Small nucleolar RNA snoR109: a 90-nucleotide sequence from Anisodus acutangulus. Lineage of the source: Eukaryota > Viridiplantae > Embryophyta > Pentapetalae > Anisodus. Rfam classes the family as an H/ACA-box small nucleolar RNA.
RNA sequence: UGGCUGUAGCUAUAUGAAUAUUAAUGAGAAGUUAUCUGGCCGGUUGUUGUAUAUCUGUUGACAUAUCUGCUUACCGAACUACCUACAUUU
Numbered sequence: 001u002g003g004c005u006g007u008a009g010c011u012a013u014a015u016g017a018a019u020a021u022u023a024a025u026g027a028g029a030a031g032u033u034a035u036c037u038g039g040c041c042g043g044u045u046g047u048u049g050u051a052u053a054u055c056u057g058u059u060g061a062c063a064u065a066u067c068u069g070c071u072u073a074c075c076g077a078a079c080u081a082c083c084u085a086c087a088u089u090u
Stems, first nucleotide, its partner, number of pairs: 026084001028082001030080004038071003042067003046062004